[Rfam]
The record is a 108-nucleotide RNA from Amnibacterium flavum, which matches "ZMP/ZTP riboswitch aptamer (pfl RNA motif)" in Rfam.
RNA sequence: UGACGUCGUCGCGACUGGCGUGGCGGAGGCUUCCGAGACCUCCCCAGUAGGUGGAUCACCACCGGGGAACGACUGACACCGACGGGGCCGUACGCCUGGGCUUCGUGG
Numbered sequence: 001u002g003a004c005g006u007c008g009u010c011g012c013g014a015c016u017g018g019c020g021u022g023g024c025g026g027a028g029g030c031u032u033c034c035g036a037g038a039c040c041u042c043c044c045c046a047g048u049a050g051g052u053g054g055a056u057c058a059c060c061a062c063c064g065g066g067g068a069a070c071g072a073c074u075g076a077c078a079c080c081g082a083c084g085g086g087g088c089c090g091u092a093c094g095c096c097u098g099g100g101c102u103u104c105g106u107g108g
Base pairs, nucleotide, nucleotide: 006075008073009072010071011070015066016065017096018095019094020093021092051062052061053060054059085103086102087101088100089099
The organism belongs to Amnibacterium, within Bacteria.